[Rfam]
RNA sequence: ACAAUGAUACUUCCGUCCAGUCACAGUCCGAGCGGAUAUGCCGUUGGCAUAAGCCGUCGCAGGCAAUGAGGGCGGCCGCGGGCGAUCCCUGCGGUGGUGAAAACCAAUGA
Numbered sequence: 001a002c003a004a005u006g007a008u009a010c011u012u013c014c015g016u017c018c019a020g021u022c023a024c025a026g027u028c029c030g031a032g033c034g035g036a037u038a039u040g041c042c043g044u045u046g047g048c049a050u051a052a053g054c055c056g057u058c059g060c061a062g063g064c065a066a067u068g069a070g071g072g073c074g075g076c077c078g079c080g081g082g083c084g085a086u087c088c089c090u091g092c093g094g095u096g097g098u099g100a101a102a103a104c105c106a107a108u109g110a
Base pairs, nucleotide, nucleotide: 012107013075014074015073016072017071018070076094077093078092080090081089082088095106096105097104
RNA: pemK RNA